[Rfam]
RNA sequence: CGGUUGACCCCGUAGUGCUGGCGGACCCCCGACCUGGCAGCACUACGGGGUUUCCG
Dot-bracket structure: .((...((((((((((((((.(.............).))))))))))))))..)).
Numbered sequence: 001c002g003g004u005u006g007a008c009c010c011c012g013u014a015g016u017g018c019u020g021g022c023g024g025a026c027c028c029c030c031g032a033c034c035u036g037g038c039a040g041c042a043c044u045a046c047g048g049g050g051u052u053u054c055c056g
Stems, first nucleotide, its partner, number of pairs: 002055002007051014022036001
F6 TB sRNA: a 56-nucleotide RNA sequence from Actinokineospora bangkokensis. The literature on the family includes a 2009 paper in Mol Microbiol by Arnvig and Young, "Identification of small RNAs in Mycobacterium tuberculosis". The family has 16 seed sequences and 310 matches in Rfam 15.1. By type it is a small RNA.